[Rfam]
RNA sequence: GGUUUCCAUUGGUGCAAAUCCAAUCUUGAAAUUUAGGAUGAGAAAAAAAUCCCCAUUGGUAGCAAAUGUUUAUCCAUUAAGCGGGAAAAUCAUAU
Numbered sequence: 001g002g003u004u005u006c007c008a009u010u011g012g013u014g015c016a017a018a019u020c021c022a023a024u025c026u027u028g029a030a031a032u033u034u035a036g037g038a039u040g041a042g043a044a045a046a047a048a049a050u051c052c053c054c055a056u057u058g059g060u061a062g063c064a065a066a067u068g069u070u071u072a073u074c075c076a077u078u079a080a081g082c083g084g085g086a087a088a089a090u091c092a093u094a095u
Stems, first nucleotide, its partner, number of pairs: 009023004052085003055077002058074005
Dot-bracket structure: ........((((.......))))............................(((((.(((((.......))))).)).....)))..........
RNA: Plastid-rps12 3UTR RNA